The family of this 95-nucleotide sequence from Arthrobacter sp. NIO-1057 is "SAM riboswitch aptamer (S box leader)". Rfam's curators write: The SAM riboswitch is found upstream of a number of genes which code for proteins involved in methionine or cysteine biosynthesis in Gram-positive bacteria. NCBI's taxonomy places the organism under Bacteria, Actinomycetota, Actinomycetes, Micrococcaceae, Arthrobacter.

[Rfam]
RNA sequence: ACACCAUCCCGAGCGGCUGAGAGAUCUGGUUCGAUGACGCCGCAGCAACCUGCCACAUCCGGUGGUUACGGUGCUACCGCCAGAAACGAUGCAGC
Numbered sequence: 001a002c003a004c005c006a007u008c009c010c011g012a013g014c015g016g017c018u019g020a021g022a023g024a025u026c027u028g029g030u031u032c033g034a035u036g037a038c039g040c041c042g043c044a045g046c047a048a049c050c051u052g053c054c055a056c057a058u059c060c061g062g063u064g065g066u067u068a069c070g071g072u073g074c075u076a077c078c079g080c081c082a083g084a085a086a087c088g089a090u091g092c093a094g095c
Stems, first nucleotide, its partner, number of pairs: 002094001005091004013043005021032003026083004044075004049071002052066003079087001
Dot-bracket structure: .(..((((....(((((...(((..[[[[)))......)))))((((.((.(((.........)))...))))))...(]]]]...)))))..).